[Rfam]
RNA sequence: GUCCCUACCAACCCGGACCAUUCUAUGAUUCUCUGAUUCUAAAAGUUAUCACAGAAUCGCAGAAUGGCUGAGGCUGAAAGAGAC
Numbered sequence: 001g002u003c004c005c006u007a008c009c010a011a012c013c014c015g016g017a018c019c020a021u022u023c024u025a026u027g028a029u030u031c032u033c034u035g036a037u038u039c040u041a042a043a044a045g046u047u048a049u050c051a052c053a054g055a056a057u058c059g060c061a062g063a064a065u066g067g068c069u070g071a072g073g074c075u076g077a078a079a080g081a082g083a084c
Stems, first nucleotide, its partner, number of pairs: 001084003005080002009076002012073002018067007027058006034051004
Rfam assigns this 84-nucleotide RNA from Gallus gallus to the family "mir-3524 microRNA precursor family".